[Rfam]
This 76-nucleotide sequence belongs to the Rfam family "mir-9/mir-79 microRNA precursor family".
RNA sequence: GCCGUCCUCUCUUUGGUUAUCUAGCUGUAUGAUCGCUUUUUACUUCAUAAAGCUAGAAUACCGAAGUGAGGACGAC
Numbered sequence: 001g002c003c004g005u006c007c008u009c010u011c012u013u014u015g016g017u018u019a020u021c022u023a024g025c026u027g028u029a030u031g032a033u034c035g036c037u038u039u040u041u042a043c044u045u046c047a048u049a050a051a052g053c054u055a056g057a058a059u060a061c062c063g064a065a066g067u068g069a070g071g072a073c074g075a076c
Base pairs, nucleotide, nucleotide: 001076003074004073005072007070008069009068011066012065013064014063015062016061017060020057021056022055023054024053025052026051028049029048030047031046032045

Rfam links the family to the GO terms RISC complex and miRNA-mediated post-transcriptional gene silencing.